[Rfam]
RNA: Small nucleolar RNA SNORD22
Organism: Neomonachus schauinslandi
RNA sequence: UCCCAGUGAAGAAACAGUCACAUGUCUUACCUCCUGUCCUAGUCCCAGAGCCUGUAAAGAAGAAUAGGUAUUAAUUCUUCUUUAAAUGUUUGGUAGAAUUCCCCUGGGAA
Numbered sequence: 001u002c003c004c005a006g007u008g009a010a011g012a013a014a015c016a017g018u019c020a021c022a023u024g025u026c027u028u029a030c031c032u033c034c035u036g037u038c039c040u041a042g043u044c045c046c047a048g049a050g051c052c053u054g055u056a057a058a059g060a061a062g063a064a065u066a067g068g069u070a071u072u073a074a075u076u077c078u079u080c081u082u083u084a085a086a087u088g089u090u091u092g093g094u095a096g097a098a099u100u101c102c103c104c105u106g107g108g109a110a
Base pairs, nucleotide, nucleotide: 001109002108003107004106005105006104